This 243-nucleotide RNA sequence from Miscanthus lutarioriparius belongs to the Rfam family "MIR6217 microRNA precursor family". Pairs were carried over by alignment from the consensus structure, which was predicted with RNAalifold. The family has 2 seed sequences and 2,266 matches in Rfam 15.1.
RNA sequence: CAGCUACAAAAUAAGUUAUUCCGUAGCCACCUCCAUUUACGAUAAUUUUAUAUACUAAUUUACGAUAAUGUCAAUACAUAUUUACGAUAAUUGGGUUAAUAUAACACAUAGGGAAUGUUAUGGUAAAUAUCCCCAUGUGUUAUAAUAACCCAACUAUCGUAAAUAUGUAUUGACAUUAUCGUAAAUUAGUAUAUAAAAUUAUUGUAAAUGAAGGUGGCUACGUAAUAACUUAUUUUGUAGUUG
Numbered sequence: 001c002a003g004c005u006a007c008a009a010a011a012u013a014a015g016u017u018a019u020u021c022c023g024u025a026g027c028c029a030c031c032u033c034c035a036u037u038u039a040c041g042a043u044a045a046u047u048u049u050a051u052a053u054a055c056u057a058a059u060u061u062a063c064g065a066u067a068a069u070g071u072c073a074a075u076a077c078a079u080a081u082u083u084a085c086g087a088u089a090a091u092u093g094g095g096u097u098a099a100u101a102u103a104a105c106a107c108a109u110a111g112g113g114a115a116u117g118u119u120a121u122g123g124u125a126a127a128u129a130u131c132c133c134c135a136u137g138u139g140u141u142a143u144a145a146u147a148a149c150c151c152a153a154c155u156a157u158c159g160u161a162a163a164u165a166u167g168u169a170u171u172g173a174c175a176u177u178a179u180c181g182u183a184a185a186u187u188a189g190u191a192u193a194u195a196a197a198a199u200u201a202u203u204g205u206a207a208a209u210g211a212a213g214g215u216g217g218c219u220a221c222g223u224a225a226u227a228a229c230u231u232a233u234u235u236u237g238u239a240g241u242u243g
Stems, first nucleotide, its partner, number of pairs: 001243020022222011037207011051193016068176003071172001073170001081163005092156003096152001097147002100144008111132002